[Rfam]
RNA sequence: GCGGACCCCUCGUGUGGCGUCACCCCGCUGAACCCCCCCAGGGCCGGAAGGCAGCAAGGGUAGGCAGGCUCUGGCGGGUGCGCGAGGGGUCUUCGCC
Numbered sequence: 001g002c003g004g005a006c007c008c009c010u011c012g013u014g015u016g017g018c019g020u021c022a023c024c025c026c027g028c029u030g031a032a033c034c035c036c037c038c039c040a041g042g043g044c045c046g047g048a049a050g051g052c053a054g055c056a057a058g059g060g061u062a063g064g065c066a067g068g069c070u071c072u073g074g075c076g077g078g079u080g081c082g083c084g085a086g087g088g089g090u091c092u093u094c095g096c097c
Stems, first nucleotide, its partner, number of pairs: 004091011015078001018076005024068002027065003035060003043052003
Record summary:
Rfam assigns this 97-nucleotide RNA sequence from Actinocrinis puniceicyclus to the family "Bacterial small signal recognition particle RNA". It scores 63 bits against the family's covariance model. Its Rfam clan is "SRP clan". The family's consensus secondary structure is taken from published work. By type it is a non-coding RNA gene.